Rfam assigns this 137-nucleotide RNA from Salvelinus namaycush to the family "Small nucleolar RNA SNORD10". Rfam classes the family as a C/D-box small nucleolar RNA. The organism belongs to Salvelinus, within Eukaryota. It scores 41 bits against the family's covariance model. Rfam 15.1 lists 433 matches to the family in 306 species.

RNA sequence: GUUUGUUUUAUGAGACUUGUGCUUGUCAACUGAUCCCAGAAUCCCCUGGGGCUCCCGGUGGCCUGGGUUGUCCUGUCGGCUGGUUGUUACUGGGCCUCAGGGCUCUGGGGGCAUGAUCUGACAGUCGCCCUGAUAAC
Numbered sequence: 001g002u003u004u005g006u007u008u009u010a011u012g013a014g015a016c017u018u019g020u021g022c023u024u025g026u027c028a029a030c031u032g033a034u035c036c037c038a039g040a041a042u043c044c045c046c047u048g049g050g051g052c053u054c055c056c057g058g059u060g061g062c063c064u065g066g067g068u069u070g071u072c073c074u075g076u077c078g079g080c081u082g083g084u085u086g087u088u089a090c091u092g093g094g095c096c097u098c099a100g101g102g103c104u105c106u107g108g109g110g111g112c113a114u115g116a117u118c119u120g121a122c123a124g125u126c127g128c129c130c131u132g133a134u135a136a137c
Stems, first nucleotide, its partner, number of pairs: 001137003044102009
Dot-bracket structure: (((........................................(((((((((.........................................)))))))))................................)))